[Rfam]
RNA sequence: ACAAAAUCGUUGACAGGGAAGUAAAACGGUUUGCGCACCCACAGAGAGCCGGCGGUGGUGGAAGCCCGGCGGAAGGCGGAACCGAUAAAGUAGCCCUUGAGAGCGUAUGCAAACAGCAGCAUUCUGCCCAGUAGUGUACGACGCGGGGAGCGCGUUACAGCUCCGGGAUGUGUUUGCAUCCGCAGAGUGGACGUGCUGUGUGCGUCAAUGUAAGGUGGUACCGCAGGAUACAAUCCUGUCCUUUGU
Numbered sequence: 001a002c003a004a005a006a007u008c009g010u011u012g013a014c015a016g017g018g019a020a021g022u023a024a025a026a027c028g029g030u031u032u033g034c035g036c037a038c039c040c041a042c043a044g045a046g047a048g049c050c051g052g053c054g055g056u057g058g059u060g061g062a063a064g065c066c067c068g069g070c071g072g073a074a075g076g077c078g079g080a081a082c083c084g085a086u087a088a089a090g091u092a093g094c095c096c097u098u099g100a101g102a103g104c105g106u107a108u109g110c111a112a113a114c115a116g117c118a119g120c121a122u123u124c125u126g127c128c129c130a131g132u133a134g135u136g137u138a139c140g141a142c143g144c145g146g147g148g149a150g151c152g153c154g155u156u157a158c159a160g161c162u163c164c165g166g167g168a169u170g171u172g173u174u175u176g177c178a179u180c181c182g183c184a185g186a187g188u189g190g191a192c193g194u195g196c197u198g199u200g201u202g203c204g205u206c207a208a209u210g211u212a213a214g215g216u217g218g219u220a221c222c223g224c225a226g227g228a229u230a231c232a233a234u235c236c237u238g239u240c241c242u243u244u245g246u
Stems, first nucleotide, its partner, number of pairs: 007102002015097004027084005038072002048070005104140007142154003190206007212243004223239005